[Rfam]
RNA sequence: AACGUAAUGCAGGGGAACCCGUGGCGACACGGGUUGAGAAUGGCCACGGCCUGACCCUUAGAACCUGUUGGUUAAGACCAUCGUAGGGAGCAGUGAUAUGAGCGAU
Dot-bracket structure: .....(.(((((((.((((((........))))).......(((....))))..)))).....((((.(((......)))...))))..))).)............
Numbered sequence: 001a002a003c004g005u006a007a008u009g010c011a012g013g014g015g016a017a018c019c020c021g022u023g024g025c026g027a028c029a030c031g032g033g034u035u036g037a038g039a040a041u042g043g044c045c046a047c048g049g050c051c052u053g054a055c056c057c058u059u060a061g062a063a064c065c066u067g068u069u070g071g072u073u074a075a076g077a078c079c080a081u082c083g084u085a086g087g088g089a090g091c092a093g094u095g096a097u098a099u100g101a102g103c104g105a106u
Stems, first nucleotide, its partner, number of pairs: 006094001008092003011058004016052001017034005042051003064087004069080003
Notes: The record is a 106-nucleotide RNA sequence from Bifidobacterium reuteri, which matches "TPP riboswitch aptamer (THI element)" in Rfam. It scores 64 bits against the family's covariance model. Vitamin B(1) in its active form thiamin pyrophosphate (TPP) is an essential coenzyme that is synthesised by coupling of pyrimidine and thiazole moieties in bacteria. Taxonomically the source falls in Bifidobacterium reuteri (Bacteria, Actinomycetota, Bifidobacteriales, Bifidobacteriaceae).